[Rfam]
RNA sequence: GUAACUUUUCGGGGGCGGGUGGAAUUCCCGCACCGGCGGUGAGCCCGGAGGGAGUGUUCCCGACGGGGAGCCCGCGAGCCCACGGGUAGGACCCGGGGGUUGAGCCGGUGAAGGUUCGCGACGAGCCGUAGUCCGGCGCCGACGGUCAGAGUCCGGAUGGGAGAAAGGUAGA
Numbered sequence: 001g002u003a004a005c006u007u008u009u010c011g012g013g014g015g016c017g018g019g020u021g022g023a024a025u026u027c028c029c030g031c032a033c034c035g036g037c038g039g040u041g042a043g044c045c046c047g048g049a050g051g052g053a054g055u056g057u058u059c060c061c062g063a064c065g066g067g068g069a070g071c072c073c074g075c076g077a078g079c080c081c082a083c084g085g086g087u088a089g090g091a092c093c094c095g096g097g098g099g100u101u102g103a104g105c106c107g108g109u110g111a112a113g114g115u116u117c118g119c120g121a122c123g124a125g126c127c128g129u130a131g132u133c134c135g136g137c138g139c140c141g142a143c144g145g146u147c148a149g150a151g152u153c154c155g156g157a158u159g160g161g162a163g164a165a166a167g168g169u170a171g172a
Stems, first nucleotide, its partner, number of pairs: 004169007017029003032152002034141002036075004070139002078100003104137005143155003
This 172-nucleotide RNA sequence from Rubrobacter tropicus belongs to the Rfam family "FMN riboswitch aptamer (RFN element)". NCBI's taxonomy places the organism under Bacteria, Rubrobacteria, Rubrobacterales, Rubrobacteraceae, Rubrobacter. Pairs were carried over by alignment from the consensus structure, which is taken from published work.